[Rfam]
The record is a 69-nucleotide RNA from Lates calcarifer, which matches "Small nucleolar RNA SNORD75" in Rfam. By type it is a C/D-box small nucleolar RNA.
RNA sequence: AGUCGGUGAUGAUUUAGAUGAUAAGAGUAGUGGACAGAAGUGAUUUCUGAGUCAUUUUACGCUGAGACU
Dot-bracket structure: ((((.............................................................))))
Numbered sequence: 001a002g003u004c005g006g007u008g009a010u011g012a013u014u015u016a017g018a019u020g021a022u023a024a025g026a027g028u029a030g031u032g033g034a035c036a037g038a039a040g041u042g043a044u045u046u047c048u049g050a051g052u053c054a055u056u057u058u059a060c061g062c063u064g065a066g067a068c069u
Stems, first nucleotide, its partner, number of pairs: 001069004
Annotation
A search with the family's covariance model found it, with a score of 58 bits. The family has 5 seed sequences and 767 matches in Rfam 15.1. The family's consensus secondary structure was predicted with RNAalifold. Gene Ontology terms of the family: RNA processing and nucleolus.